[Rfam]
RNA sequence: CGGACGGGACGGCCCGUUUGUUCAUGCGACACGGGGACGACCCCG
Dot-bracket structure: ((((((((....))))))))...........(((((....)))))

Background:
Shown here is a 45-nucleotide RNA from Arthrobacter sp. PAMC 25486, a member of the family "Guanidine-II riboswitch aptamer (mini-ykkC)". Its family is annotated with regulation of gene expression in the Gene Ontology. Simpler in structure and has fewer highly conserved nucleotide positions than the ykkC-yxkD leader. A reference for the family is Weinberg et al. (2007), "Identification of 22 candidate structured RNAs in bacteria using the CMfinder comparative genomics pipeline", Nucleic Acids Res.